[Rfam]
RNA sequence: CUUCAACGCACCCAACCACAAUGGACGGUCCGCCGGCCGGUCCUGUCCAUAGGUCGCCAGCAACGCCUCCGCCUC
Numbered sequence: 001c002u003u004c005a006a007c008g009c010a011c012c013c014a015a016c017c018a019c020a021a022u023g024g025a026c027g028g029u030c031c032g033c034c035g036g037c038c039g040g041u042c043c044u045g046u047c048c049a050u051a052g053g054u055c056g057c058c059a060g061c062a063a064c065g066c067c068u069c070c071g072c073c074u075c
Base pairs, nucleotide, nucleotide: 016024017023031071032070038065039064043060044059045058047056049054
The family of this 75-nucleotide sequence from Saccharopolyspora phatthalungensis is "ASpks TB sRNA".
The organism belongs to Saccharopolyspora, within Bacteria.